[Rfam]
RNA sequence: CUCCUGUAGCGUUCACUGUGUAGGCCUUGGUGAAACGUCACUAUUAAGGCACGCGGUGAAUGCCAUAGUGG
Numbered sequence: 001c002u003c004c005u006g007u008a009g010c011g012u013u014c015a016c017u018g019u020g021u022a023g024g025c026c027u028u029g030g031u032g033a034a035a036c037g038u039c040a041c042u043a044u045u046a047a048g049g050c051a052c053g054c055g056g057u058g059a060a061u062g063c064c065a066u067a068g069u070g071g
Stems, first nucleotide, its partner, number of pairs: 004068003009063008018054003025049008
A member of the RNA family "mir-124 microRNA precursor family" from Dreissena polymorpha, 71 nucleotides long. Taxonomically the source falls in Dreissena (Eukaryota, Protostomia, Autobranchia, Heteroconchia). Rfam 15.1 lists 2,215 matches to the family in 905 species.